[Rfam]
RNA sequence: GACGACCGGCCGGACAUGCCAUGAGCAGAAUCAGGGCAUCCGGCCCACAAGUGGAGGCUCCGAUCUCCCACCUGACCGUCCUCCGGGACGGCGGGUCCCCGGUCAGGCGGCCACCAUCGUUCCGUACGGACGAUGGAGUCGCCCGAAAGCGCGCCCCGCGGCAUCGCGGCGGUGCUCCGGUAGUCAUUGGAGCCCGCAUGUGAUCGUACCGGGGCAUUUUUU
Numbered sequence: 001g002a003c004g005a006c007c008g009g010c011c012g013g014a015c016a017u018g019c020c021a022u023g024a025g026c027a028g029a030a031u032c033a034g035g036g037c038a039u040c041c042g043g044c045c046c047a048c049a050a051g052u053g054g055a056g057g058c059u060c061c062g063a064u065c066u067c068c069c070a071c072c073u074g075a076c077c078g079u080c081c082u083c084c085g086g087g088a089c090g091g092c093g094g095g096u097c098c099c100c101g102g103u104c105a106g107g108c109g110g111c112c113a114c115c116a117u118c119g120u121u122c123c124g125u126a127c128g129g130a131c132g133a134u135g136g137a138g139u140c141g142c143c144c145g146a147a148a149g150c151g152c153g154c155c156c157c158g159c160g161g162c163a164u165c166g167c168g169g170c171g172g173u174g175c176u177c178c179g180g181u182a183g184u185c186a187u188u189g190g191a192g193c194c195c196g197c198a199u200g201u202g203a204u205c206g207u208a209c210c211g212g213g214g215c216a217u218u219u220u221u222u
Stems, first nucleotide, its partner, number of pairs: 004104006012041002042097005048074002051071004055066002076091006106143003110140001114136008153215006159206003165202003169197004174193005

The record is a 222-nucleotide RNA sequence, which matches "Streptomyces RNA 1601" in Rfam.
The match comes from Rfam's covariance-model search (170 bits).
For this family Rfam cites "Deep sequencing-based identification of small non-coding RNAs in Streptomyces coelicolor" (Vockenhuber et al., RNA Biol, 2011).
Rfam classes the family as a small RNA.